[Rfam]
RNA: Bacterial RNase P class A
RNA sequence: GCGGAUGGCUGGAUGACCGCGGGCGCCCUUGCGGCGUUCGAGGAAAGUCCGGACUCCAACAAGCACGGUGCCGGGUAACGCCCGGCCGGGGAAACCCGAGGGAAAGCGCCACAGAAAAGAAACUACCCUGCAUGUCGGGGUAAAGGUGAAACGGUGGGGUAAGAGCCCACCGCGGGACUGGCAACAGGACCGGCAUGGCAAGCCCCACCGGGAGCAAUGCCAAAUAGGGACCCCGCGCGGGAGCAUGGUCCAGAGCAAUCUGGAUAUCGCCGUAGGGAUGCUUUAGCCCGAGGGGUCCGGGUUGGCAGCUAGAGGUGUCAUGGUAACAUGGCGCUAAGAUGAAUGGUCAUCCACGGGGGGAAACCCCCUGGACAAAAUCCGGCUUAUAGGCUGUCCGCGCAG
Numbered sequence: 001g002c003g004g005a006u007g008g009c010u011g012g013a014u015g016a017c018c019g020c021g022g023g024c025g026c027c028c029u030u031g032c033g034g035c036g037u038u039c040g041a042g043g044a045a046a047g048u049c050c051g052g053a054c055u056c057c058a059a060c061a062a063g064c065a066c067g068g069u070g071c072c073g074g075g076u077a078a079c080g081c082c083c084g085g086c087c088g089g090g091g092a093a094a095c096c097c098g099a100g101g102g103a104a105a106g107c108g109c110c111a112c113a114g115a116a117a118a119g120a121a122a123c124u125a126c127c128c129u130g131c132a133u134g135u136c137g138g139g140g141u142a143a144a145g146g147u148g149a150a151a152c153g154g155u156g157g158g159g160u161a162a163g164a165g166c167c168c169a170c171c172g173c174g175g176g177a178c179u180g181g182c183a184a185c186a187g188g189a190c191c192g193g194c195a196u197g198g199c200a201a202g203c204c205c206c207a208c209c210g211g212g213a214g215c216a217a218u219g220c221c222a223a224a225u226a227g228g229g230a231c232c233c234c235g236c237g238c239g240g241g242a243g244c245a246u247g248g249u250c251c252a253g254a255g256c257a258a259u260c261u262g263g264a265u266a267u268c269g270c271c272g273u274a275g276g277g278a279u280g281c282u283u284u285a286g287c288c289c290g291a292g293g294g295g296u297c298c299g300g301g302u303u304g305g306c307a308g309c310u311a312g313a314g315g316u317g318u319c320a321u322g323g324u325a326a327c328a329u330g331g332c333g334c335u336a337a338g339a340u341g342a343a344u345g346g347u348c349a350u351c352c353a354c355g356g357g358g359g360g361a362a363a364c365c366c367c368c369u370g371g372a373c374a375a376a377a378u379c380c381g382g383c384u385u386a387u388a389g390g391c392u393g394u395c396c397g398c399g400c401a402g
Stems, first nucleotide, its partner, number of pairs: 001398010011387001012351007020040008045385003049382005054214004061284003066210005071085005086100001087098004101205002106203002108199003123145002125141006153171006172194001173192003178187003218307004228298006275289003279285001315334008